[Rfam]
RNA sequence: GUUCGAUGAAGCGAACUAAAAGGUAUGCAGGACCCGGGGGCAGUACCCGGCGCCUCCACCAAAAGUACACUAUUCCAGUUAAGUCUGGAACGUAUCUGAUAAAGCGGGUAGUGUACUUUUGAUGGGGGCGAAUUAGGAUCGACUGGUGCUGAAUAGGUAAGUGGAGAGCCGGUGUGCAAGCAACCGUAAUCGUAAGAAACUAAAGUAAACGCAAACGAUAAUUUUGCAUCUGAUAUCCGCCUAGCGGCAUAA
Numbered sequence: 001g002u003u004c005g006a007u008g009a010a011g012c013g014a015a016c017u018a019a020a021a022g023g024u025a026u027g028c029a030g031g032a033c034c035c036g037g038g039g040g041c042a043g044u045a046c047c048c049g050g051c052g053c054c055u056c057c058a059c060c061a062a063a064a065g066u067a068c069a070c071u072a073u074u075c076c077a078g079u080u081a082a083g084u085c086u087g088g089a090a091c092g093u094a095u096c097u098g099a100u101a102a103a104g105c106g107g108g109u110a111g112u113g114u115a116c117u118u119u120u121g122a123u124g125g126g127g128g129c130g131a132a133u134u135a136g137g138a139u140c141g142a143c144u145g146g147u148g149c150u151g152a153a154u155a156g157g158u159a160a161g162u163g164g165a166g167a168g169c170c171g172g173u174g175u176g177c178a179a180g181c182a183a184c185c186g187u188a189a190u191c192g193u194a195a196g197a198a199a200c201u202a203a204a205g206u207a208a209a210c211g212c213a214a215a216c217g218a219u220a221a222u223u224u225u226g227c228a229u230c231u232g233a234u235a236u237c238c239g240c241c242u243a244g245c246g247g248c249a250u251a252a
Stems, first nucleotide, its partner, number of pairs: 001169004015158003024148003028145003034050005051130007170186004
Shown here is a 252-nucleotide RNA from Rhodobacteraceae bacterium Water-Bin34, a member of the family "permuted transfer-messenger RNA". From the family's description: Bacterial tmRNA, also known as 10Sa RNA or SsrA, is named for its dual tRNA and mRNA-like properties. Its role is to liberate the mRNA from a stalled ribosome. To accomplish this part of the tmRNA is used as a reading frame that ends in a translation stop signal. It is one of the family's seed sequences. By type it is a non-coding RNA gene.